Shown here is a 114-nucleotide RNA sequence from Clostridium tepidiprofundi, a member of the family "FMN riboswitch aptamer (RFN element)".
Lineage of the source: Bacteria > Bacillota > Clostridia > Eubacteriales > Clostridium tepidiprofundi.
[Rfam]
RNA sequence: AUAUUCCUUCAGGGCAGGGUGAAAUUCCCGACCGGCGGUAAAGUCCGCGAACCUUAUGGUUGAUCUGGUGAGAUUCCAGAACCGACAGUAAAGUCUGGAUGGGAGAAGGAUAAC
Numbered sequence: 001a002u003a004u005u006c007c008u009u010c011a012g013g014g015c016a017g018g019g020u021g022a023a024a025u026u027c028c029c030g031a032c033c034g035g036c037g038g039u040a041a042a043g044u045c046c047g048c049g050a051a052c053c054u055u056a057u058g059g060u061u062g063a064u065c066u067g068g069u070g071a072g073a074u075u076c077c078a079g080a081a082c083c084g085a086c087a088g089u090a091a092a093g094u095c096u097g098g099a100u101g102g103g104a105g106a107a108g109g110a111u112a113a114c
Base pairs, nucleotide, nucleotide: 005110006109007108008107009106010105017029018028019027031094032093033084034083035048036047037046038045043082044081051060052059053058064080065079066078067077068076086097087096088095